[Rfam]
RNA: mir-3492 microRNA precursor family
RNA sequence: UGCAUUACUUACUCGGUGCUGAGAUUUUGUCACACCACACCACAAGGACUGAUGAGACUCCCGAGAUAAGUGGAGCG
Numbered sequence: 001u002g003c004a005u006u007a008c009u010u011a012c013u014c015g016g017u018g019c020u021g022a023g024a025u026u027u028u029g030u031c032a033c034a035c036c037a038c039a040c041c042a043c044a045a046g047g048a049c050u051g052a053u054g055a056g057a058c059u060c061c062c063g064a065g066a067u068a069a070g071u072g073g074a075g076c077g
Stems, first nucleotide, its partner, number of pairs: 002076002005073002008070004013066002017063002021060003025057007
Dot-bracket structure: .((.((.((((.((..((..(((.(((((((...................)))))))))).)).)))))).)).)).